[Rfam]
RNA sequence: UCCCGGAUUUCGCUUGAACUGAGGCAGAGGCGGGGGACCCACGUCCCGGGCAAUCCGUUUGCCCUUGGGGUUAAGCCAGCACGUGUUCGAUCCGUGCGGCCGGAUGCCCUCAUCCGAACCCGACAGCUAACUCCGCAGGUGUGUGAGAGGCGAAUC
Numbered sequence: 001u002c003c004c005g006g007a008u009u010u011c012g013c014u015u016g017a018a019c020u021g022a023g024g025c026a027g028a029g030g031c032g033g034g035g036g037a038c039c040c041a042c043g044u045c046c047c048g049g050g051c052a053a054u055c056c057g058u059u060u061g062c063c064c065u066u067g068g069g070g071u072u073a074a075g076c077c078a079g080c081a082c083g084u085g086u087u088c089g090a091u092c093c094g095u096g097c098g099g100c101c102g103g104a105u106g107c108c109c110u111c112a113u114c115c116g117a118a119c120c121c122g123a124c125a126g127c128u129a130a131c132u133c134c135g136c137a138g139g140u141g142u143g144u145g146a147g148a149g150g151c152g153a154a155u156c
Stems, first nucleotide, its partner, number of pairs: 001141001003139002008029003030136006040067002068121003076099002102115004
RNA: c-di-AMP riboswitch aptamer (ydaO/yuaA leader)